A member of the RNA family "glmS glucosamine-6-phosphate activated ribozyme aptamer" from Paenibacillus sambharensis, 197 nucleotides long. The base pairs follow the family's consensus structure, which is taken from published work. From the family's description: This entry contains a glucosamine-6-phosphate activated ribozyme that is found in the mRNA for GlmS. GlmS is an enzyme that uses fructose-6-phosphate and glutamine to generate glucosamine-6-phosphate. The match comes from Rfam's covariance-model search (77 bits).
[Rfam]
RNA sequence: AAAGCUUCAUAAGCGCCAGAGCUUGUGCGGGUAUCAUGGAAGGGUAAGCAGGUUGGCCCGACUGAUGAUACGGCAAGCUGACGAGGUGGAGGUGUUCGAAUUGUUCGGCGGGGACCUCCCGGCUAUUCAUUCAAGCCGUAAGCUGAAACGCAAAACGUCCGGGCGACCGGGUGGACAACGAAUCAGCGGAAUGCCAG
Numbered sequence: 001a002a003a004g005c006u007u008c009a010u011a012a013g014c015g016c017c018a019g020a021g022c023u024u025g026u027g028c029g030g031g032u033a034u035c036a037u038g039g040a041a042g043g044g045u046a047a048g049c050a051g052g053u054u055g056g057c058c059c060g061a062c063u064g065a066u067g068a069u070a071c072g073g074c075a076a077g078c079u080g081a082c083g084a085g086g087u088g089g090a091g092g093u094g095u096u097c098g099a100a101u102u103g104u105u106c107g108g109c110g111g112g113g114a115c116c117u118c119c120c121g122g123c124u125a126u127u128c129a130u131u132c133a134a135g136c137c138g139u140a141a142g143c144u145g146a147a148a149c150g151c152a153a154a155a156c157g158u159c160c161g162g163g164c165g166a167c168c169g170g171g172u173g174g175a176c177a178a179c180g181a182a183u184c185a186g187c188g189g190a191a192u193g194c195c196a197g
Base pairs, nucleotide, nucleotide: 020079021078022077023076024075025074026073088119089118090117091116092115096108097107098106099105120138121137122136123135124134142187143186144185145184146183156173157172158171159170160169161168162167